RNA sequence: UAGACCAGAAGAGGCGCGUUGCUCAGGUAGCCUGUGUCAGAUGUCUGUACAUCGUAGCACAGAGGAGGGGAGCAUCGCCGAGGAGCUUACGUUACAGAGCGUAUAGCUUCGGUCGCCAGGGCUGAAUCCCUGGGACUGUCACCUGAACCCUGGUGGAGAGCUUCUGGCCUU
Numbered sequence: 001u002a003g004a005c006c007a008g009a010a011g012a013g014g015c016g017c018g019u020u021g022c023u024c025a026g027g028u029a030g031c032c033u034g035u036g037u038c039a040g041a042u043g044u045c046u047g048u049a050c051a052u053c054g055u056a057g058c059a060c061a062g063a064g065g066a067g068g069g070g071a072g073c074a075u076c077g078c079c080g081a082g083g084a085g086c087u088u089a090c091g092u093u094a095c096a097g098a099g100c101g102u103a104u105a106g107c108u109u110c111g112g113u114c115g116c117c118a119g120g121g122c123u124g125a126a127u128c129c130c131u132g133g134g135a136c137u138g139u140c141a142c143c144u145g146a147a148c149c150c151u152g153g154u155g156g157a158g159a160g161c162u163u164c165u166g167g168c169c170u171u
Stems, first nucleotide, its partner, number of pairs: 006166006016078003020074005031065003035061003082110006088103005111137004116133006139156005145150001